Rfam assigns this 74-nucleotide RNA from Cyprinodon variegatus to the family "Small nucleolar RNA SNORD19". The family's RNA type in Rfam is C/D-box small nucleolar RNA. The pairing is the family consensus, mapped onto this sequence. The match comes from Rfam's covariance-model search (38 bits).

[Rfam]
RNA sequence: UGGAAAUGAGGACAAAAUGCAUUUCUGGAGUUCACUAUGAAGACUUCUAAUCCAACUCUGAUCCAAACAUCUCC
Numbered sequence: 001u002g003g004a005a006a007u008g009a010g011g012a013c014a015a016a017a018u019g020c021a022u023u024u025c026u027g028g029a030g031u032u033c034a035c036u037a038u039g040a041a042g043a044c045u046u047c048u049a050a051u052c053c054a055a056c057u058c059u060g061a062u063c064c065a066a067a068c069a070u071c072u073c074c
Stems, first nucleotide, its partner, number of pairs: 001065004